RNA: Metazoan signal recognition particle RNA
RNA sequence: GCCGGGCGUAGUGGCUUGCGUCUGUAAUCCAGCUACCUGGAGGCCGGGACCUGGAGGCCGGGAAACGGAACGGCUUGAGGCUGGGAGUCCUGUCGGUCGACGCUCUAUGUUGAUCAGGUGUCCACUCUAAGCCUGGCGUCAACAUGGUCACCCUGGCGGAGGCCGGGGCGGCCAGGUUAGCCAAGGAGAGACGUACCGGCCCAGGGGGUACACCCAGCAGGCAAAAGUCUCCGCGUCGAGCAGUAGAGGGAUCGCACCCGUGAAUAGGCGUCGGCAGGUAGCCUAGCUAAUACAGACGGACUGUAACCUUU
Numbered sequence: 001g002c003c004g005g006g007c008g009u010a011g012u013g014g015c016u017u018g019c020g021u022c023u024g025u026a027a028u029c030c031a032g033c034u035a036c037c038u039g040g041a042g043g044c045c046g047g048g049a050c051c052u053g054g055a056g057g058c059c060g061g062g063a064a065a066c067g068g069a070a071c072g073g074c075u076u077g078a079g080g081c082u083g084g085g086a087g088u089c090c091u092g093u094c095g096g097u098c099g100a101c102g103c104u105c106u107a108u109g110u111u112g113a114u115c116a117g118g119u120g121u122c123c124a125c126u127c128u129a130a131g132c133c134u135g136g137c138g139u140c141a142a143c144a145u146g147g148u149c150a151c152c153c154u155g156g157c158g159g160a161g162g163c164c165g166g167g168g169c170g171g172c173c174a175g176g177u178u179a180g181c182c183a184a185g186g187a188g189a190g191a192c193g194u195a196c197c198g199g200c201c202c203a204g205g206g207g208g209u210a211c212a213c214c215c216a217g218c219a220g221g222c223a224a225a226a227g228u229c230u231c232c233g234c235g236u237c238g239a240g241c242a243g244u245a246g247a248g249g250g251a252u253c254g255c256a257c258c259c260g261u262g263a264a265u266a267g268g269c270g271u272c273g274g275c276a277g278g279u280a281g282c283c284u285a286g287c288u289a290a291u292a293c294a295g296a297c298g299g300a301c302u303g304u305a306a307c308c309u310u311u
Base pairs, nucleotide, nucleotide: 001058002057003056004023005022006021007020008019009018010017011016028055029054030053031052032051060309061308062307065304066303067302068301071298072297074295075294079288080287081286082285083284084283085282090281091280092279093278094277096275097274098273099272100271101270102269104268105267106266107265108264110262115260117258118257119256120255121254122250123249125248126247127246128245129244131241132240134238135237136236137235138234139233141178142177143176145174146173147172148171149170151168152167153166154165155164156163157162181185188231189230190229191228192227199222200221201220206215207214208213